[Rfam]
RNA: tRNA
Nucleotides: 067
Stems, first nucleotide, its partner, number of pairs: 001066007010020004022037003025033001043059005
Number, partner (000 for none) and nucleotide at each position: 001066a002065g003064a004063g005062a006061u007060u008000u009000a010020a011019g012018u013017u014000a015000a016000u017013a018012a019011c020010u021000a022037a023036a024035a025033c026000c027000u028000u029000c030000a031000a032000a033025g034000u035024u036023u037022u038000c039000a040000a041000u042000a043059g044058a045057g046056a047055g048000u049000g050000a051000a052000a053000c054000c055047c056046u057045c058044u059043u060007a061006a062005u063004c064003u065002u066001u067000a